[Rfam]
RNA sequence: CGCACUUUUAAAAAGGUGCUGGCAGAUGUAAAUCCGACGUGGCGUACAGGCCACGGCCUUCAGGCUUUGGGAUUGC
Number, nucleotide and partner (000 for none) at each position: 001c000002g019003c018004a017005c016006u015007u014008u013009u000010a000011a000012a000013a008014a007015g006016g005017u004018g003019c002020u000021g000022g000023c000024a000025g000026a000027u000028g076029u075030a074031a073032a000033u000034c071035c070036g000037a000038c000039g054040u053041g052042g051043c050044g000045u000046a000047c000048a000049g000050g043051c042052c041053a040054c039055g066056g065057c064058c063059u000060u000061c000062a000063g058064g057065c056066u055067u000068u000069g000070g035071g034072a000073u031074u030075g029076c028
The record is a 76-nucleotide RNA sequence, which matches "S15-Methanomicrobia ribosomal protein leader" in Rfam. Rfam classes the family as a cis-regulatory leader. A reference for the family is Eckert and Weinberg (2020), "Discovery of 20 novel ribosomal leader candidates in bacteria and archaea", BMC Microbiol. Rfam's curators put it in the seed alignment. Clan: Ribosomal Protein S15 Leader clan.